The record is a 145-nucleotide RNA sequence from Camelus dromedarius, which matches "Small nucleolar RNA SNORA48" in Rfam. The literature on the family includes a 1997 paper in J Mol Biol by Ofengand and Bakin, "Mapping to nucleotide resolution of pseudouridine residues in large subunit ribosomal RNAs from representative eukaryotes, prokaryotes, archaebacteria, mitochondria and chloroplasts". Rfam classes the family as an H/ACA-box small nucleolar RNA. Its family is annotated with nucleolus and RNA processing in the Gene Ontology. Its Rfam clan is "SNORA48 clan". From the family's description: The snoRNA ACA 48 has been identified to guide pseudouridylation of the residue U3797 in the 28S rRNA subunit. NCBI's taxonomy places the organism under Eukaryota, Eutheria, Boreoeutheria, Laurasiatheria, Camelus.
RNA sequence: CCCCCCUGGCAAUGGGCAAAGAGACACCUGAUUGGUGGCAUUGCUCUUAUAUCAGUCAGGGGCAAAGAAGAUGUCCAGCCCUUUGUUCAUCCUAGCUUGAUGCCUGGACUGGUGGCCAGAGCUGUUUCAUGCCUGAGGAACAUAA
Numbered sequence: 001c002c003c004c005c006c007u008g009g010c011a012a013u014g015g016g017c018a019a020a021g022a023g024a025c026a027c028c029u030g031a032u033u034g035g036u037g038g039c040a041u042u043g044c045u046c047u048u049a050u051a052u053c054a055g056u057c058a059g060g061g062g063c064a065a066a067g068a069a070g071a072u073g074u075c076c077a078g079c080c081c082u083u084u085g086u087u088c089a090u091c092c093u094a095g096c097u098u099g100a101u102g103c104c105u106g107g108a109c110u111g112g113u114g115g116c117c118a119g120a121g122c123u124g125u126u127u128c129a130u131g132c133c134u135g136a137g138g139a140a141c142a143u144a145a
Stems, first nucleotide, its partner, number of pairs: 003062006013054003019048003023042002027038002084140001086138002099133001101131001105129003110124002113121001